Small Cajal body specific RNA 21: a 150-nucleotide RNA from Camelus dromedarius.
RNA sequence: AGGCUUGGUUUUCUGGGGGGUGGGCUCAGCCUGGCCCACCUCCCUUCAGACGAGUUUCCGACAGAGAUGCCCAGCCUCCUCUCUCACGAGAGAGGCAGAGGUGGUUAAGGCAGGAGCUUCACUCACCUGGGUUGUCCUUGCCUCACAUUC
Numbered sequence: 001a002g003g004c005u006u007g008g009u010u011u012u013c014u015g016g017g018g019g020g021u022g023g024g025c026u027c028a029g030c031c032u033g034g035c036c037c038a039c040c041u042c043c044c045u046u047c048a049g050a051c052g053a054g055u056u057u058c059c060g061a062c063a064g065a066g067a068u069g070c071c072c073a074g075c076c077u078c079c080u081c082u083c084u085c086a087c088g089a090g091a092g093a094g095g096c097a098g099a100g101g102u103g104g105u106u107a108a109g110g111c112a113g114g115a116g117c118u119u120c121a122c123u124c125a126c127c128u129g130g131g132u133u134g135u136c137c138u139u140g141c142c143u144c145a146c147a148u149u150c
Stems, first nucleotide, its partner, number of pairs: 002056006015044010066144002069141002074136001078131003088119003

From the family's description: scaRNAs are a specific class of small nuclear RNAs which localise to the Cajal bodies and guide the modification of RNA polymerase II transcribed spliceosomal RNAs U1, U2, U4, U5 and U12. ACA68 (SCARNA21) is a member of the H/ACA class of snoRNAs that guide the sites of modification of uridines to pseudouridines. The organism belongs to Camelus, within Eukaryota.